Shown here is an 87-nucleotide sequence from Pristionchus pacificus, a member of the family "mir-2232 microRNA precursor family". The sequence is in the family's curated seed alignment. The base pairs follow the family's consensus structure, which was predicted with RNAalifold.
RNA sequence: CCAUCCGAUCCUGAACGGUUCCCUGGUGGCAUGGUCGAUACUAAUGAGCGAACUAUGACACCUGGGCGAACUGUCCAGGCGGGGUUU
Dot-bracket structure: ..(.((...((((.(((((((.(.(((.....(.((..(.(....))..)).)......)))...).))))))).))))...)).).
Numbered sequence: 001c002c003a004u005c006c007g008a009u010c011c012u013g014a015a016c017g018g019u020u021c022c023c024u025g026g027u028g029g030c031a032u033g034g035u036c037g038a039u040a041c042u043a044a045u046g047a048g049c050g051a052a053c054u055a056u057g058a059c060a061c062c063u064g065g066g067c068g069a070a071c072u073g074u075c076c077a078g079g080c081g082g083g084g085u086u087u
Stems, first nucleotide, its partner, number of pairs: 003086001005084002010079004015074007023066001025062003033053001035051002039047001041046001
Its family is annotated with miRNA-mediated post-transcriptional gene silencing and RISC complex in the Gene Ontology.